[Rfam]
RNA: Small nucleolar RNA R30/Z108
RNA sequence: GAUGUUCACAAUGAGGAUAUAAAGCUCCCUCUUCUGAUAUUUAGUUGAGGAAAAUUGCUGGCAGAAUCGAACCUAAAUAAAUCUUGCCAUCACUGAGUGA
Numbered sequence: 001g002a003u004g005u006u007c008a009c010a011a012u013g014a015g016g017a018u019a020u021a022a023a024g025c026u027c028c029c030u031c032u033u034c035u036g037a038u039a040u041u042u043a044g045u046u047g048a049g050g051a052a053a054a055u056u057g058c059u060g061g062c063a064g065a066a067u068c069g070a071a072c073c074u075a076a077a078u079a080a081a082u083c084u085u086g087c088c089a090u091c092a093c094u095g096a097g098u099g100a
Stems, first nucleotide, its partner, number of pairs: 006100004